[Rfam]
RNA: Y RNA-like
RNA sequence: AUGGCGAAUGCCGAGGAAACUACAUGUACGGAGGUUCGAUUCCUCCCUGAGCUUUAUGCUCCGUCGCUCAGUGGUCGAGCAAUGAUGUUUCCGCAAAACUCGUCGCCAUGGC
Numbered sequence: 001a002u003g004g005c006g007a008a009u010g011c012c013g014a015g016g017a018a019a020c021u022a023c024a025u026g027u028a029c030g031g032a033g034g035u036u037c038g039a040u041u042c043c044u045c046c047c048u049g050a051g052c053u054u055u056a057u058g059c060u061c062c063g064u065c066g067c068u069c070a071g072u073g074g075u076c077g078a079g080c081a082a083u084g085a086u087g088u089u090u091c092c093g094c095a096a097a098a099c100u101c102g103u104c105g106c107c108a109u110g111g112c
Base pairs, nucleotide, nucleotide: 002108003107004106005105006104007103013094015092016091017090018089019088023084024083025082030046031045032044033043034042037074047063049061050060051059052058066080067079068078069077